[Rfam]
RNA sequence: CGUCCCGGCGGUCCGCGACAUCUCCUCAAAGAACCUGGAAGAGAACCAAACCCGUCCCCACCCCACCCCCUUGUCACUCCAUCGAGUGAUGGGGUGGCAGGUGCGAUCGACUGCGGAGUACGGUCGCGCCAACAAGCGCAUGAAUGACCCCAGAAAAGACUUCGGCCCCCGGCGGGGACGGCCAUCCCCAUUGCCGAGGGCCUGAUCAACAGGAAGAAGCAGCUUCCCG
Numbered sequence: 001c002g003u004c005c006c007g008g009c010g011g012u013c014c015g016c017g018a019c020a021u022c023u024c025c026u027c028a029a030a031g032a033a034c035c036u037g038g039a040a041g042a043g044a045a046c047c048a049a050a051c052c053c054g055u056c057c058c059c060a061c062c063c064c065a066c067c068c069c070c071u072u073g074u075c076a077c078u079c080c081a082u083c084g085a086g087u088g089a090u091g092g093g094g095u096g097g098c099a100g101g102u103g104c105g106a107u108c109g110a111c112u113g114c115g116g117a118g119u120a121c122g123g124u125c126g127c128g129c130c131a132a133c134a135a136g137c138g139c140a141u142g143a144a145u146g147a148c149c150c151c152a153g154a155a156a157a158g159a160c161u162u163c164g165g166c167c168c169c170c171g172g173c174g175g176g177g178a179c180g181g182c183c184a185u186c187c188c189c190a191u192u193g194c195c196g197a198g199g200g201c202c203u204g205a206u207c208a209a210c211a212g213g214a215a216g217a218a219g220c221a222g223c224u225u226c227c228c229g
Stems, first nucleotide, its partner, number of pairs: 007210001008207001015070001017068001074089006097137002164202005170196003175188004212227005
Description
The family of this 229-nucleotide sequence from Streptomyces sp. SAJ15 is "Streptomyces sRNA 4677". The family has 12 seed sequences and 563 matches in Rfam 15.1. Taxonomically the source falls in Streptomyces (Bacteria, Bacillati, Actinomycetota, Kitasatosporales). A reference for the family is Hindra et al. (2014), "Complex intra-operonic dynamics mediated by a small RNA in Streptomyces coelicolor", PLoS One. The family's RNA type in Rfam is small RNA. The match comes from Rfam's covariance-model search (72 bits).